RNA sequence: AACAAUUUGGUUCGCCGAGCUUUUCAGCGCUAAGUAUUUGUUGCAUCAAGCGACAAAGAUAAGUCUGAUAAGCCGUGGUUAACGAGUGGCAACGCAAUACAGCGACCACUAGUCAAACCACCAGGGUUAGCAAGGAAACGCGCUAGCCUCCCGCAUUUGGAAAGGUGAGAUGUUACAAGACGC
Numbered sequence: 001a002a003c004a005a006u007u008u009g010g011u012u013c014g015c016c017g018a019g020c021u022u023u024u025c026a027g028c029g030c031u032a033a034g035u036a037u038u039u040g041u042u043g044c045a046u047c048a049a050g051c052g053a054c055a056a057a058g059a060u061a062a063g064u065c066u067g068a069u070a071a072g073c074c075g076u077g078g079u080u081a082a083c084g085a086g087u088g089g090c091a092a093c094g095c096a097a098u099a100c101a102g103c104g105a106c107c108a109c110u111a112g113u114c115a116a117a118c119c120a121c122c123a124g125g126g127u128u129a130g131c132a133a134g135g136a137a138a139c140g141c142g143c144u145a146g147c148c149u150c151c152c153g154c155a156u157u158u159g160g161a162a163a164g165g166u167g168a169g170a171u172g173u174u175a176c177a178a179g180a181c182g183c
Stems, first nucleotide, its partner, number of pairs: 011169006019073004024068003029064002034060002037057008075121005124149008134139001150160002
Dot-bracket structure: ..........((((((..((((.(((..((...((.((((((((.....)))))))).))..)).))).)))).(((((.....................................)))))..((((((((..(....)..))))))))((.......))...))))))..............
RNA: Molybdenum/Tungsten riboswitch aptamer (Moco RNA motif)
Organism: Thalassotalea euphylliae